[Rfam]
RNA: radC RNA
Organism: Bordetella ansorpii
RNA sequence: UGCUCCAUCGCAUGUGUUGCUGCUGUCGCAGCGCCAUGCCCGCAGCCAGGGUGUCCAGGCUGCCGUGGGGUCCGCCCACGCCACCCGCCAGUUCGCCUCGGCAUCUCACCGGCGAACGCUGCCCACCGGGGCACCGAUGC
Numbered sequence: 001u002g003c004u005c006c007a008u009c010g011c012a013u014g015u016g017u018u019g020c021u022g023c024u025g026u027c028g029c030a031g032c033g034c035c036a037u038g039c040c041c042g043c044a045g046c047c048a049g050g051g052u053g054u055c056c057a058g059g060c061u062g063c064c065g066u067g068g069g070g071u072c073c074g075c076c077c078a079c080g081c082c083a084c085c086c087g088c089c090a091g092u093u094c095g096c097c098u099c100g101g102c103a104u105c106u107c108a109c110c111g112g113c114g115a116a117c118g119c120u121g122c123c124c125a126c127c128g129g130g131g132c133a134c135c136g137a138u139g140c
Stems, first nucleotide, its partner, number of pairs: 011038004019032005042063006050084001064080006112140003120133005